Rfam assigns this 145-nucleotide sequence from Gossypium lobatum to the family "MIR7502 microRNA precursor family". Gene Ontology terms of the family: miRNA-mediated post-transcriptional gene silencing and RISC complex. It scores 107 bits against the family's covariance model. Taxonomically the source falls in Gossypium (Eukaryota, Tracheophyta, Mesangiospermae, malvids).
RNA sequence: UAUUAAAAAAUUAAUCCAUUUAUACUAUUAAAAACUAACACGAUUGAUGGAAUAACAAGACAAUAACACAUGGUGUGUCACAUGUACCUCAUGUUCAUAUACAUAGACCAAUUUUUAACAAUAGAAAUAGAUGAAAUUUUUAACU
Numbered sequence: 001u002a003u004u005a006a007a008a009a010a011u012u013a014a015u016c017c018a019u020u021u022a023u024a025c026u027a028u029u030a031a032a033a034a035c036u037a038a039c040a041c042g043a044u045u046g047a048u049g050g051a052a053u054a055a056c057a058a059g060a061c062a063a064u065a066a067c068a069c070a071u072g073g074u075g076u077g078u079c080a081c082a083u084g085u086a087c088c089u090c091a092u093g094u095u096c097a098u099a100u101a102c103a104u105a106g107a108c109c110a111a112u113u114u115u116u117a118a119c120a121a122u123a124g125a126a127a128u129a130g131a132u133g134a135a136a137u138u139u140u141u142a143a144c145u
Stems, first nucleotide, its partner, number of pairs: 003143007011135002014132003018128004023123002026120001028118006
Dot-bracket structure: ..(((((((.((.(((.((((.((.(.((((((...............................................................................)))))).).)).)))).))).)).)))))))..